Rfam assigns this 97-nucleotide RNA from Bifidobacterium italicum to the family "Bacterial small signal recognition particle RNA".
The family's RNA type in Rfam is non-coding RNA gene.
The base pairs follow the family's consensus structure, which is taken from published work.
Rfam describes the family as follows. The signal recognition particle (SRP) is a universally conserved ribonucleoprotein involved in the co-translational targeting of proteins to membranes.
Lineage of the source: Bacteria > Bacillati > Actinomycetota > Bifidobacteriaceae > Bifidobacterium.
RNA sequence: UGAAUGCCUCCGCGUGGCACUACGUCACCCAAUCCCCCCAGGGCAGGAAUGCAGCAAGGGUAAGUGGCCUCUGGUGGGUGCGCGGAGGUUUUUCCGU
Numbered sequence: 001u002g003a004a005u006g007c008c009u010c011c012g013c014g015u016g017g018c019a020c021u022a023c024g025u026c027a028c029c030c031a032a033u034c035c036c037c038c039c040a041g042g043g044c045a046g047g048a049a050u051g052c053a054g055c056a057a058g059g060g061u062a063a064g065u066g067g068c069c070u071c072u073g074g075u076g077g078g079u080g081c082g083c084g085g086a087g088g089u090u091u092u093u094c095c096g097u
Stems, first nucleotide, its partner, number of pairs: 004091001006089009015078001018076005024068005035060003043052003